[Rfam]
RNA sequence: AGGGCAGGGGGGUAUCCGCAGAUCCCACACCGCGGUUCCUGUUCCUCACGGCGGUCGCGCAGCCCGCGCGGUCGUCCAUGGUUGUCGCUCGGGGGUGAUCGCCG
Numbered sequence: 001a002g003g004g005c006a007g008g009g010g011g012g013u014a015u016c017c018g019c020a021g022a023u024c025c026c027a028c029a030c031c032g033c034g035g036u037u038c039c040u041g042u043u044c045c046u047c048a049c050g051g052c053g054g055u056c057g058c059g060c061a062g063c064c065c066g067c068g069c070g071g072u073c074g075u076c077c078a079u080g081g082u083u084g085u086c087g088c089u090c091g092g093g094g095g096u097g098a099u100c101g102c103c104g
Stems, first nucleotide, its partner, number of pairs: 002044007014037001016035004050076011
Dot-bracket structure: .(((((((.....(.((((............)))).)))))))).....(((((((((((.....)))))))))))............................
che1 RNA: a 104-nucleotide RNA sequence from Kitasatospora sp. MMS16-BH015. It scores 60 bits against the family's covariance model.